[Rfam]
RNA: Nuclear RNase P
RNA sequence: UUGCUUGUGAGAUGACUUUAGGAGCUCCAAACAGGUGUUUAUCGCCUUUCUCGCUCCUGGGAAGGUCUGAGAAAUGGCCUUAGUACCCUUCAGGAAGGGGACAUCCAAGAGGAUGUGGAACCGUGCUGGAAGCAGACUGCCUCCUUGUUGUGGACAAGAAACCUGUCGGUGGAUCCCAUACGAUCGGGAGUGCAUUUGAAACACGGUUCCGGCCAGCGACUUUAGUGCGAUAGUCACCCAAACCCAAUUCAGACUACUCCAUGAGCAA
Number, nucleotide and partner (000 for none) at each position: 001u268002u267003g266004c265005u000006u000007g262008u261009g260010a000011g000012a000013u000014g000015a000016c000017u233018u232019u000020a058021g057022g056023a055024g054025c000026u000027c000028c000029a000030a000031a000032c000033a047034g046035g045036u044037g043038u000039u000040u000041a000042u000043c037044g036045c035046c034047u033048u000049u000050c000051u000052c000053g000054c024055u023056c022057c021058u020059g000060g000061g000062a000063a000064g000065g000066u000067c252068u251069g250070a249071g248072a000073a000074a000075u000076g214077g213078c212079c211080u000081u000082a000083g000084u000085a000086c100087c099088c098089u097090u096091c000092a000093g000094g000095a000096a090097g089098g088099g087100g086101a116102c115103a114104u113105c112106c111107a000108a000109g000110a000111g106112g105113a104114u103115g102116u101117g210118g209119a208120a207121c206122c205123g204124u000125g000126c000127u000128g000129g000130a000131a000132g000133c000134a000135g000136a000137c000138u194139g193140c000141c000142u000143c000144c000145u000146u000147g000148u000149u000150g000151u000152g000153g000154a000155c000156a000157a000158g000159a000160a000161a000162c000163c000164u000165g000166u000167c000168g000169g000170u000171g000172g000173a000174u000175c000176c000177c000178a000179u000180a000181c000182g000183a000184u000185c000186g000187g000188g000189a000190g000191u000192g000193c139194a138195u000196u000197u000198g000199a000200a000201a000202c000203a000204c123205g122206g121207u120208u119209c118210c117211g079212g078213c077214c076215a000216g000217c000218g000219a000220c000221u000222u000223u000224a000225g000226u000227g000228c000229g000230a000231u000232a018233g017234u000235c000236a000237c000238c000239c000240a000241a000242a000243c000244c000245c000246a000247a000248u071249u070250c069251a068252g067253a000254c000255u000256a000257c000258u000259c000260c009261a008262u007263g000264a000265g004266c003267a002268a001